About this RNA
Actinobacteria sRNA Ms_IGR-5: a 194-nucleotide sequence from Streptomonospora alba. The pairing is the family consensus, mapped onto this sequence.

RNA sequence: ACGCAGGAAAGGAGGUGGUCCGAACAGUGAAGACGUUUGGGACUUGCGAGGUGUCCGUCCGCUAGGGCGACACGCUGAUAGCGGUUCGCUCUGGCGAAUCCACUUCGGACACCCGGAUCCCCGGGUCGCCGGGACUUGUCCACCCGGCGCGAUUGCGCCGCACGCGGCGGAGCCACCCCGGGGAUCUGUCCUUU
Numbered sequence: 001a002c003g004c005a006g007g008a009a010a011g012g013a014g015g016u017g018g019u020c021c022g023a024a025c026a027g028u029g030a031a032g033a034c035g036u037u038u039g040g041g042a043c044u045u046g047c048g049a050g051g052u053g054u055c056c057g058u059c060c061g062c063u064a065g066g067g068c069g070a071c072a073c074g075c076u077g078a079u080a081g082c083g084g085u086u087c088g089c090u091c092u093g094g095c096g097a098a099u100c101c102a103c104u105u106c107g108g109a110c111a112c113c114c115g116g117a118u119c120c121c122c123g124g125g126u127c128g129c130c131g132g133g134a135c136u137u138g139u140c141c142a143c144c145c146g147g148c149g150c151g152a153u154u155g156c157g158c159c160g161c162a163c164g165c166g167g168c169g170g171a172g173c174c175a176c177c178c179c180g181g182g183g184a185u186c187u188g189u190c191c192u193u194u
Stems, first nucleotide, its partner, number of pairs: 014059005060096011073083002114188012128148006